[Rfam]
RNA sequence: GUGGGCUAUGGGGACAUGGUACCGAUCACUAUAGGAGGCAAGAUUGUAGGAUCUUUGUGCGCCAUUGCUGGAGUGUUGACAAUUGCACUCCCAGUGCCUGUUAUUGUGUCCAAC
Numbered sequence: 001g002u003g004g005g006c007u008a009u010g011g012g013g014a015c016a017u018g019g020u021a022c023c024g025a026u027c028a029c030u031a032u033a034g035g036a037g038g039c040a041a042g043a044u045u046g047u048a049g050g051a052u053c054u055u056u057g058u059g060c061g062c063c064a065u066u067g068c069u070g071g072a073g074u075g076u077u078g079a080c081a082a083u084u085g086c087a088c089u090c091c092c093a094g095u096g097c098c099u100g101u102u103a104u105u106g107u108g109u110c111c112a113a114c
Stems, first nucleotide, its partner, number of pairs: 001114002004111002007108005013102004018097001021095002037077004049063002
Potassium channel RNA editing signal: a 114-nucleotide RNA from Labrus bergylta. Lineage of the source: Eukaryota > Bilateria > Euteleosteomorpha > Labriformes > Labrus. For this family Rfam cites "Control of human potassium channel inactivation by editing of a small mRNA hairpin" (Bhalla et al., Nat Struct Mol Biol, 2004). Rfam's curators write: This family represents a group of sequences related to the human potassium channel Kv1.1 hairpin element which directs the efficient modification of an adenosine to inosine by an adenosine deaminase acting on RNA (ADAR). Rfam links the family to the GO term adenosine to inosine editing.